[Rfam]
RNA sequence: GGAUUGCGUGAGGGAUAGCAGCGGCAUCCUCUUGGGGCGGGGUUCGCCCCAAGAGAUAUAGCGGAUAGCCCGACCCCGA
Numbered sequence: 001g002g003a004u005u006g007c008g009u010g011a012g013g014g015a016u017a018g019c020a021g022c023g024g025c026a027u028c029c030u031c032u033u034g035g036g037g038c039g040g041g042g043u044u045c046g047c048c049c050c051a052a053g054a055g056a057u058a059u060a061g062c063g064g065a066u067a068g069c070c071c072g073a074c075c076c077c078g079a
Stems, first nucleotide, its partner, number of pairs: 012071003016067002021062002026057003031053008
Record summary: A member of the RNA family "Flavo-1 RNA" from Flavobacterium succinicans, 79 nucleotides long. NCBI's taxonomy places the organism under Bacteria, Pseudomonadati, Flavobacteriia, Flavobacteriaceae, Flavobacterium.